Record summary:
The record is a 371-nucleotide sequence from a Propionibacteriales bacterium, which matches "transfer-messenger RNA" in Rfam.

RNA sequence: GGGGCUGAACGGUUUCGACUGUGGACGAUAGGUCCAGGGGAAGCGGGUCGAGGACCCAGGGUCAUCUCGUUAACGAUCCUUGGAAACCAAUAGGUGCCGAUACAAAGCGCACUGACUUCGCCCUCGCCGCCUGACGGCGACUAGCGAAGGGUCAGCCUGGGAACGCCUCCGUCCCAGAUCCUGGCCUCGAUAAGGAGGCUUGCUGAUCAGAUCCGGCCGCGGGUUCUGAUCGGGACAUAAACAGCGGCUGAGCCUGUCAACGACGUGUCUGCUCGAGCGUUGGGGCCGAGAAAGGCGACCAGCAGACUGCACCCGGAGAAUACCUGAGCCGUCUCCAGAGGACGCGGGUUCGAUUCCCGCCAGCUCCACGA
Numbered sequence: 001g002g003g004g005c006u007g008a009a010c011g012g013u014u015u016c017g018a019c020u021g022u023g024g025a026c027g028a029u030a031g032g033u034c035c036a037g038g039g040g041a042a043g044c045g046g047g048u049c050g051a052g053g054a055c056c057c058a059g060g061g062u063c064a065u066c067u068c069g070u071u072a073a074c075g076a077u078c079c080u081u082g083g084a085a086a087c088c089a090a091u092a093g094g095u096g097c098c099g100a101u102a103c104a105a106a107g108c109g110c111a112c113u114g115a116c117u118u119c120g121c122c123c124u125c126g127c128c129g130c131c132u133g134a135c136g137g138c139g140a141c142u143a144g145c146g147a148a149g150g151g152u153c154a155g156c157c158u159g160g161g162a163a164c165g166c167c168u169c170c171g172u173c174c175c176a177g178a179u180c181c182u183g184g185c186c187u188c189g190a191u192a193a194g195g196a197g198g199c200u201u202g203c204u205g206a207u208c209a210g211a212u213c214c215g216g217c218c219g220c221g222g223g224u225u226c227u228g229a230u231c232g233g234g235a236c237a238u239a240a241a242c243a244g245c246g247g248c249u250g251a252g253c254c255u256g257u258c259a260a261c262g263a264c265g266u267g268u269c270u271g272c273u274c275g276a277g278c279g280u281u282g283g284g285g286c287c288g289a290g291a292a293a294g295g296c297g298a299c300c301a302g303c304a305g306a307c308u309g310c311a312c313c314c315g316g317a318g319a320a321u322a323c324c325u326g327a328g329c330c331g332u333c334u335c336c337a338g339a340g341g342a343c344g345c346g347g348g349u350u351c352g353a354u355u356c357c358c359g360c361c362a363g364c365u366c367c368a369c370g371a
Base pairs, nucleotide, nucleotide: 001367002366003365004364005363006362007361019340020339022337023336024335025334027332031330032329033328035326036325037324038323040321044315045314046313047312048311049069050068051067052066053065056083057082058081059080060079061078123144124143126141128139129138130137150186151185152184153183154182155181157177158176159175160174161173162172165199166198167197168196169195170194203233204232205231206230207229208228209227210226211225215249216248217247218246219245220244252286253285254284255283258282259281260280264275265274267307268306269305270304344360345359346358347357348356
Annotation: By type it is a non-coding RNA gene. Lineage of the source: Bacteria > Bacillati > Actinomycetota > Actinomycetes > Propionibacteriales. The literature on the family includes a 1996 paper in RNA by Williams and Bartel, "Phylogenetic analysis of tmRNA secondary structure".